[Rfam]
RNA sequence: GCAUAUUUCAAGUUUGUGCGUGGGUCUAACAUCCUUAGCCAACAGAUUAUUACGGGGAUAUGAUUUUAAUCGUCAAUUUAAUUGACAAAUUUCCCCCCUUUUGGUAAUUCGACGGCAUCAAUCUAUGUUAGAUUCACGCACAAACUCGUGAUCUGUCU
Number, nucleotide and partner (000 for none) at each position: 001g156002c155003a154004u000005a152006u151007u150008u000009c000010a000011a146012g145013u144014u143015u142016g141017u140018g139019c138020g137021u136022g135023g134024g133025u132026c131027u000028a129029a128030c127031a126032u125033c000034c000035u000036u000037a000038g000039c000040c000041a000042a000043c000044a000045g000046a000047u000048u000049a000050u000051u000052a000053c000054g000055g000056g000057g000058a000059u000060a000061u000062g000063a000064u000065u000066u000067u000068a000069a000070u000071c000072g000073u000074c000075a000076a000077u000078u000079u000080a000081a000082u000083u000084g000085a000086c000087a000088a000089a000090u000091u000092u000093c000094c000095c000096c000097c000098c000099u000100u000101u000102u000103g000104g000105u000106a000107a000108u000109u000110c000111g000112a000113c000114g000115g000116c000117a000118u000119c000120a000121a000122u000123c000124u000125a032126u031127g030128u029129u028130a000131g026132a025133u024134u023135c022136a021137c020138g019139c018140a017141c016142a015143a014144a013145c012146u011147c000148g000149u000150g007151a006152u005153c000154u003155g002156u001157c000158u000
Rfam assigns this 158-nucleotide RNA from Handroanthus impetiginosus to the family "MIR403 microRNA precursor family". A reference for the family is Mica et al. (2009), "High throughput approaches reveal splicing of primary microRNA transcripts and tissue specific expression of mature microRNAs in Vitis vinifera", BMC Genomics. NCBI's taxonomy places the organism under Eukaryota, Mesangiospermae, Pentapetalae, lamiids, Handroanthus. The family has 13 seed sequences and 215 matches in Rfam 15.1.